[Rfam]
The family of this 125-nucleotide sequence from Piliocolobus tephrosceles is "U4atac minor spliceosomal RNA". A search with the family's covariance model found it, with a score of 60 bits. Its family is annotated with U4atac snRNP, mRNA 5'-splice site recognition and pre-mRNA 5'-splice site binding in the Gene Ontology. For this family Rfam cites "Evolution of spliceosomal snRNA genes in metazoan animals" (Marz et al., J Mol Evol, 2008). U4atac is an essential component of the minor U12-type spliceosome complex which is required for removal of the rarer class of eukaryotic introns (AT-AC, U12-type). The source organism's lineage runs through Eukaryota, Opisthokonta, Bilateria, Euarchontoglires and Piliocolobus.

RNA sequence: CCCAUCCUUUCCUUGGAGUUGUGCUACUGUCCAGUGAGUGCACGGCAAGAGCAGUCCUCCUAACCCUACAUAACACACCUGUCUCAACUAGAGCAUCACUUCACCUUGGUGCAGUUUUUGGAAAA
Number, nucleotide and partner (000 for none) at each position: 001c000002c000003c000004a000005u000006c018007c000008u016009u015010u000011c000012c000013u000014u000015g009016g008017a000018g006019u000020u000021g060022u000023g058024c000025u000026a055027c054028u053029g052030u051031c000032c049033a000034g000035u000036g000037a000038g046039u045040g000041c000042a000043c000044g000045g039046c038047a000048a000049g032050a000051g030052c029053a028054g027055u026056c000057c000058u023059c000060c021061u000062a000063a000064c000065c000066c000067u000068a000069c000070a000071u000072a000073a000074c000075a000076c000077a000078c000079c000080u000081g112082u111083c000084u109085c108086a107087a000088c000089u103090a000091g101092a100093g099094c000095a000096u000097c000098a000099c093100u092101u091102c000103a089104c000105c000106u000107u086108g085109g084110u000111g082112c081113a000114g000115u000116u000117u000118u000119u000120g000121g000122a000123a000124a000125a000